This 479-nucleotide RNA from Pantoea alhagi belongs to the Rfam family "cspA thermoregulator". It scores 154 bits against the family's covariance model. Rfam links the family to the GO terms response to temperature stimulus and regulation of translation.
[Rfam]
RNA sequence: AAAUCAUUGAGUUAUGAUUUUUUAAGAUGAGGGGAUGAAGGCAGUUGCCCUUGAAUGACGCUUCUCUGUGACAUUUAAUGACUUCUACAAAGUGGUCACAUACGAAAAAAAAGCGAUAUUUAUCACUUUUUCUUCACGACGCACUGGACAAAAGGCGCGGCAAUUGCUGUACUUAACCCCGACACAGUUUAGUGUCCAUUUUUCAUGUAAAGGUAAUAUAGAUGUCCAAGAUUAAAGGUAACGUUAAGUGGUUUAAUGAGUCCAAAGGAUUCGGCUUCAUUACUCCGGAAGAUGGCAGCAAAGACGUAUUCGUACACUUCUCUGCUAUCCAGAGCAAUGGUUUCAAAACCCUGGCCGAAGGUCAGCGCGUUGAGUUUGAAAUCACUGACGGCGCAAAAGGCCCAUCUGCUGCUAACGUUAUCGCUCUGUAAGUUAACAGUCAGAAUUUUAAAAACCCGCCUGCUGGCGGGUUUUUUUUU
Numbered sequence: 001a002a003a004u005c006a007u008u009g010a011g012u013u014a015u016g017a018u019u020u021u022u023u024a025a026g027a028u029g030a031g032g033g034g035a036u037g038a039a040g041g042c043a044g045u046u047g048c049c050c051u052u053g054a055a056u057g058a059c060g061c062u063u064c065u066c067u068g069u070g071a072c073a074u075u076u077a078a079u080g081a082c083u084u085c086u087a088c089a090a091a092g093u094g095g096u097c098a099c100a101u102a103c104g105a106a107a108a109a110a111a112a113g114c115g116a117u118a119u120u121u122a123u124c125a126c127u128u129u130u131u132c133u134u135c136a137c138g139a140c141g142c143a144c145u146g147g148a149c150a151a152a153a154g155g156c157g158c159g160g161c162a163a164u165u166g167c168u169g170u171a172c173u174u175a176a177c178c179c180c181g182a183c184a185c186a187g188u189u190u191a192g193u194g195u196c197c198a199u200u201u202u203u204c205a206u207g208u209a210a211a212g213g214u215a216a217u218a219u220a221g222a223u224g225u226c227c228a229a230g231a232u233u234a235a236a237g238g239u240a241a242c243g244u245u246a247a248g249u250g251g252u253u254u255a256a257u258g259a260g261u262c263c264a265a266a267g268g269a270u271u272c273g274g275c276u277u278c279a280u281u282a283c284u285c286c287g288g289a290a291g292a293u294g295g296c297a298g299c300a301a302a303g304a305c306g307u308a309u310u311c312g313u314a315c316a317c318u319u320c321u322c323u324g325c326u327a328u329c330c331a332g333a334g335c336a337a338u339g340g341u342u343u344c345a346a347a348a349c350c351c352u353g354g355c356c357g358a359a360g361g362u363c364a365g366c367g368c369g370u371u372g373a374g375u376u377u378g379a380a381a382u383c384a385c386u387g388a389c390g391g392c393g394c395a396a397a398a399g400g401c402c403c404a405u406c407u408g409c410u411g412c413u414a415a416c417g418u419u420a421u422c423g424c425u426c427u428g429u430a431a432g433u434u435a436a437c438a439g440u441c442a443g444a445a446u447u448u449u450a451a452a453a454a455c456c457c458g459c460c461u462g463c464u465g466g467c468g469g470g471u472u473u474u475u476u477u478u479u
Stems, first nucleotide, its partner, number of pairs: 002019006026286001030284002033281001040278002044276001046274001048273001049268004060261002064258001067255002071252001072224006082213003086209003090174004184195003226238002291383003303311002316370002319367001322365003325361002329354004338347001390403002393401002406428001408426001410423002413420001433443002436440001450475011